Rfam assigns this 101-nucleotide RNA sequence from Diplocarpon coronariae to the family "Small nucleolar RNA Z13/snr52". Its family is annotated with RNA processing and nucleolus in the Gene Ontology.
RNA sequence: GUGCUCUUAGUGAUGAAAGAAUUUCGGAUGCUAAAUCAUAUUGUCUCCGAGAGCGCAAAACCAUGUGGAGAUAUUCCGUUGCCUUCCUUCUGACUUGAGAA
Numbered sequence: 001g002u003g004c005u006c007u008u009a010g011u012g013a014u015g016a017a018a019g020a021a022u023u024u025c026g027g028a029u030g031c032u033a034a035a036u037c038a039u040a041u042u043g044u045c046u047c048c049g050a051g052a053g054c055g056c057a058a059a060a061c062c063a064u065g066u067g068g069a070g071a072u073a074u075u076c077c078g079u080u081g082c083c084u085u086c087c088u089u090c091u092g093a094c095u096u097g098a099g100a101a
Base pairs, nucleotide, nucleotide: 004099005098025078026077027076028075
About this RNA: It scores 80 bits against the family's covariance model. The organism belongs to Diplocarpon, within Eukaryota.